The family of this 82-nucleotide RNA sequence from Nostoc sp. ATCC 43529 is "Photosynthesis regulatory RNA1". The match comes from Rfam's covariance-model search (60 bits). The base pairs follow the family's consensus structure, which was predicted with CMfinder. Its family is annotated with regulation of photosynthesis and regulation of translation in the Gene Ontology. Formerly known as Syr1 discovered in Synechocystis sp PCC 6803, is a regulatory factor controlling photosynthetic functions. PsrR1 interacts with the ribosome binding regions of several photosynthesis-related mRNAs. In particular, psaL mRNA is processed by RNase E only in the presence of PsrR1.

[Rfam]
RNA sequence: AAGAUUUUUAGACUUUGGUAUCGGUAUCUCCCAUUGACAUUUGGAUUUCCCCCGAACCUCGGUACUUAACGCCGGGGUUUUU
Numbered sequence: 001a002a003g004a005u006u007u008u009u010a011g012a013c014u015u016u017g018g019u020a021u022c023g024g025u026a027u028c029u030c031c032c033a034u035u036g037a038c039a040u041u042u043g044g045a046u047u048u049c050c051c052c053c054g055a056a057c058c059u060c061g062g063u064a065c066u067u068a069a070c071g072c073c074g075g076g077g078u079u080u081u082u
Stems, first nucleotide, its partner, number of pairs: 056078008